The record is a 123-nucleotide sequence from Caenorhabditis brenneri, which matches "Caenorhabditis snoRNA ceN92" in Rfam.
Lineage of the source: Eukaryota > Bilateria > Ecdysozoa > Rhabditomorpha > Caenorhabditis.
Pairs were carried over by alignment from the consensus structure, which was predicted with RNAalifold.
Gene Ontology terms of the family: RNA processing and nucleolus.
On this family, see Jia et al., BMC Mol Biol 2007: "Systematic identification of non-coding RNA 2,2,7-trimethylguanosine cap structures in Caenorhabditis elegans".
Rfam classes the family as an H/ACA-box small nucleolar RNA.
RNA sequence: GAUUAACUUAAAAAUCGCAAGUAUUCAUACUUAGCGAUAUCGAUGAGAUGGUAGAUAAGACGUUCCUCUGCCACACGUGUACUGGCUUCAUGCUGUAUGAGUUCCAUAGAUUUACGAACAAUU
Numbered sequence: 001g002a003u004u005a006a007c008u009u010a011a012a013a014a015u016c017g018c019a020a021g022u023a024u025u026c027a028u029a030c031u032u033a034g035c036g037a038u039a040u041c042g043a044u045g046a047g048a049u050g051g052u053a054g055a056u057a058a059g060a061c062g063u064u065c066c067u068c069u070g071c072c073a074c075a076c077g078u079g080u081a082c083u084g085g086c087u088u089c090a091u092g093c094u095g096u097a098u099g100a101g102u103u104c105c106a107u108a109g110a111u112u113u114a115c116g117a118a119c120a121a122u123u
Stems, first nucleotide, its partner, number of pairs: 002052004007047002014038005020032002067110003075102002078099005084094003